[Rfam]
RNA sequence: GCCGCUGGGAUUGCGGAUUAUAAAUCG
Numbered sequence: 001g002c003c004g005c006u007g008g009g010a011u012u013g014c015g016g017a018u019u020a021u022a023a024a025u026c027g
Stems, first nucleotide, its partner, number of pairs: 002016004009026004
RNA: Pseudoknot of upstream pseudoknot domain (UPD) of the 3'UTR
Organism: Furovirus cerealis